[Rfam]
RNA sequence: CGCUUAUUUCGCCCAGGCGGAGUUCGACCGCCGGUCGAAGUCAUGAUCGCCUUUACCGACGAUCAUCGUGGGGAGCAUGGGGUCGUGCCGAUCUGCAAGGUGUUGCCGAUUGCCCUG
Dot-bracket structure: ...............(((((.......))))).............................................(((((......((.((.((((....)))).)).)))))))
Annotation:
The record is a 117-nucleotide RNA sequence from Caenispirillum salinarum, which matches "ALIL pseudoknot" in Rfam. Pairs were carried over by alignment from the consensus structure, which is taken from published work.